[Rfam]
RNA sequence: AAAAUAAAUAUGGCAAUGGCCUGUAUAAUUGGGGGAAUAGGGCUCCCAAGUUUCUACCGGGCAACCGUAAAUUGCCCUGGCUACAGCCUGAAAGUGUACCUCA
Numbered sequence: 001a002a003a004a005u006a007a008a009u010a011u012g013g014c015a016a017u018g019g020c021c022u023g024u025a026u027a028a029u030u031g032g033g034g035g036a037a038u039a040g041g042g043c044u045c046c047c048a049a050g051u052u053u054c055u056a057c058c059g060g061g062c063a064a065c066c067g068u069a070a071a072u073u074g075c076c077c078u079g080g081c082u083a084c085a086g087c088c089u090g091a092a093a094g095u096g097u098a099c100c101u102c103a
Stems, first nucleotide, its partner, number of pairs: 018089002021086005029049007058079001059077006
Purine riboswitch aptamer: a 103-nucleotide RNA sequence from Neomoorella thermoacetica. Rfam's curators put it in the seed alignment. The organism belongs to Neomoorella thermoacetica, within Bacteria. The family's consensus secondary structure is taken from published work.